[Rfam]
RNA sequence: UUUAGUUGAUGAAGACAUCAUUGGAAAGCCAAGGGAAAAGAUGAUGUCUGAUGUUGGUCUAAA
Numbered sequence: 001u002u003u004a005g006u007u008g009a010u011g012a013a014g015a016c017a018u019c020a021u022u023g024g025a026a027a028g029c030c031a032a033g034g035g036a037a038a039a040g041a042u043g044a045u046g047u048c049u050g051a052u053g054u055u056g057g058u059c060u061a062a063a
Base pairs, nucleotide, nucleotide: 001063002062003061004060005059014048015047016046017045018044019043020042021041022040029035030034
Dot-bracket structure: (((((........(((((((((......((...))....)))))))))..........)))))